[Rfam]
Nucleotides: 092
Stems, first nucleotide, its partner, number of pairs: 001092001003090003
Number, partner (000 for none) and nucleotide at each position: 001092g002000c003090u004089g005088u006000u007000g008000g009000g010000u011000g012000a013000u014000g015000a016000g017000g018000c019000u020000c021000u022000g023000g024000a025000a026000u027000g028000a029000g030000c031000c032000c033000u034000g035000g036000g037000c038000a039000u040000a041000g042000u043000g044000c045000c046000c047000g048000a049000g050000u051000c052000g053000c054000u055000g056000c057000a058000g059000a060000a061000a062000c063000a064000u065000c066000c067000c068000g069000u070000g071000c072000u073000g074000c075000c076000u077000u078000c079000c080000u081000u082000c083000u084000g085000a086000g087000a088005g089004c090003a091000u092001c

The family of this 92-nucleotide sequence from Myotis lucifugus is "Small nucleolar RNA U83B". For this family Rfam cites "Characterisation of the U83 and U84 small nucleolar RNAs: two novel 2'-O-ribose methylation guide RNAs that lack complementarities to ribosomal RNAs" (Jady and Kiss, Nucleic Acids Res, 2000). About the family: U83B belongs to the C/D family of snoRNAs. U83B like U83A has no documented RNA target and they share the same host gene with the C/D box snoRNA U43 (RPL3). N.B. U83A/B/C have no sequence similarity with the U83 snoRNA that was cloned by Jady and Kiss (2000). It is annotated as a C/D-box small nucleolar RNA.